[Rfam]
RNA sequence: UGUUGAUAAGGGCAAACUAUCUCGAAAGAAUAGGACGCAAAGCCAAGGGUCUAAGGUCAAAGACUAUGAUAGCCUGGUUGCCAAA
Numbered sequence: 001u002g003u004u005g006a007u008a009a010g011g012g013c014a015a016a017c018u019a020u021c022u023c024g025a026a027a028g029a030a031u032a033g034g035a036c037g038c039a040a041a042g043c044c045a046a047g048g049g050u051c052u053a054a055g056g057u058c059a060a061a062g063a064c065u066a067u068g069a070u071a072g073c074c075u076g077g078u079u080g081c082c083a084a085a
Base pairs, nucleotide, nucleotide: 012038013037017033018032019031020030022029023028041079042078043077044076046075047074048073049070050069051068056064057063058062
Rfam assigns this 85-nucleotide RNA from Oceanobacillus piezotolerans to the family "c-di-GMP-I riboswitch aptamer". GEMM was predicted in a large-scale screen for bacterial structured RNA regulatory elements. Gene Ontology term of the family: cyclic-di-GMP binding. Clan: c-di-GMP_I riboswitch clan. Lineage of the source: Bacteria > Bacillati > Bacillota > Bacillaceae > Oceanobacillus. The base pairs follow the family's consensus structure, which is taken from published work.